Notes
The record is a 102-nucleotide sequence from Plutella xylostella, which matches "mir-8517 microRNA precursor family" in Rfam.
RNA sequence: UUCGGUUUAGCUAUUGAACUGUUUUGUCCCUUUCGGUCAAUGAUCAAUUUGUUCUUUGACAGAGAGGGACAAAACAGUUCAUUAGCUAAAAUAUCCUCUAAC
Dot-bracket structure: .....((((((((.((((((((((((((..............(.((...)).)....))))))..........)))))))).))))))))............
Numbered sequence: 001u002u003c004g005g006u007u008u009a010g011c012u013a014u015u016g017a018a019c020u021g022u023u024u025u026g027u028c029c030c031u032u033u034c035g036g037u038c039a040a041u042g043a044u045c046a047a048u049u050u051g052u053u054c055u056u057u058g059a060c061a062g063a064g065a066g067g068g069a070c071a072a073a074a075c076a077g078u079u080c081a082u083u084a085g086c087u088a089a090a091a092u093a094u095c096c097u098c099u100a101a102c
Stems, first nucleotide, its partner, number of pairs: 006090008015081008023063006043053001045051002
NCBI's taxonomy places the organism under Eukaryota, Metazoa, Arthropoda, Pterygota, Plutella.